[Rfam]
RNA sequence: AUCAACCAGCACGUGGUGAGGAGCCCGGACAUGUUUAUCGAUGAAGUGGUAUUGGCAGGCGUACUUAUCGUCGGACUCUGCGUCGUCUUCUGCGCCGGGUUCGCCUAUUUCAUCUGGAAGGACUCGAAGAAAACCAAGAGCAACUGAUCCUUCCUGAUCAAAGAGCACGCAAGGCAUUUUGGGCGACUUCGGUCGCCCAUUUUUUUG
Numbered sequence: 001a002u003c004a005a006c007c008a009g010c011a012c013g014u015g016g017u018g019a020g021g022a023g024c025c026c027g028g029a030c031a032u033g034u035u036u037a038u039c040g041a042u043g044a045a046g047u048g049g050u051a052u053u054g055g056c057a058g059g060c061g062u063a064c065u066u067a068u069c070g071u072c073g074g075a076c077u078c079u080g081c082g083u084c085g086u087c088u089u090c091u092g093c094g095c096c097g098g099g100u101u102c103g104c105c106u107a108u109u110u111c112a113u114c115u116g117g118a119a120g121g122a123c124u125c126g127a128a129g130a131a132a133a134c135c136a137a138g139a140g141c142a143a144c145u146g147a148u149c150c151u152u153c154c155u156g157a158u159c160a161a162a163g164a165g166c167a168c169g170c171a172a173g174g175c176a177u178u179u180u181g182g183g184c185g186a187c188u189u190c191g192g193u194c195g196c197c198c199a200u201u202u203u204u205u206u207g
Stems, first nucleotide, its partner, number of pairs: 007097001009095002046056002073084002165175002168173001181198007
RNA: PhrS
Organism: Pseudomonas flexibilis